[Rfam]
RNA: MIR1428 microRNA precursor family
RNA sequence: GCGCUUUGCGAAUUUACAUGCCUUAUCUUGUGGUAUGAACUGAGUACGCGAUAAUUUAUGGUGUGUAUUGGGGGCUUACCAUAAGAUAAUGUUCGUAAUCGCAAGCAU
Numbered sequence: 001g002c003g004c005u006u007u008g009c010g011a012a013u014u015u016a017c018a019u020g021c022c023u024u025a026u027c028u029u030g031u032g033g034u035a036u037g038a039a040c041u042g043a044g045u046a047c048g049c050g051a052u053a054a055u056u057u058a059u060g061g062u063g064u065g066u067a068u069u070g071g072g073g074g075c076u077u078a079c080c081a082u083a084a085g086a087u088a089a090u091g092u093u094c095g096u097a098a099u100c101g102c103a104a105g106c107a108u
Stems, first nucleotide, its partner, number of pairs: 003106003007103005013098002020092002024088012037075001040072002043069004048064003